RNA sequence: UGCGGGAUGCCGAAGUCGGGUCCCGAGCUUAACAAACUCGCUGAUAUUCGGGAGAUUGAACAUGGCU
Dot-bracket structure: (.((((((.(((....))))))))).)....(....(((.((((...))))))).)...........

Notes:
A member of the RNA family "Repression of heat shock gene expression (ROSE) element" from Azotobacter vinelandii, 67 nucleotides long. The pairing is the family consensus, mapped onto this sequence. On this family, see Krajewski et al., PLoS One 2013: "Short ROSE-Like RNA Thermometers Control IbpA Synthesis in Pseudomonas Species". Rfam's curators put it in the seed alignment. NCBI's taxonomy places the organism under Bacteria, Pseudomonadati, Pseudomonadaceae, Azotobacter, Azotobacter vinelandii.